The record is a 35-nucleotide RNA, which matches "L31-Firmicutes ribosomal protein leader" in Rfam. Clan: Ribosomal Protein L31 Leader clan. Rfam classes the family as a cis-regulatory leader. For this family Rfam cites "Discovery of 20 novel ribosomal leader candidates in bacteria and archaea" (Eckert and Weinberg, BMC Microbiol, 2020). Pairs were carried over by alignment from the consensus structure, which is taken from published work. It is one of the family's seed sequences.
RNA sequence: CUCUGGAACCGAAUGUUGUUCCAGGGCGGAAAGAG
Numbered sequence: 001c002u003c004u005g006g007a008a009c010c011g012a013a014u015g016u017u018g019u020u021c022c023a024g025g026g027c028g029g030a031a032a033g034a035g
Stems, first nucleotide, its partner, number of pairs: 001026008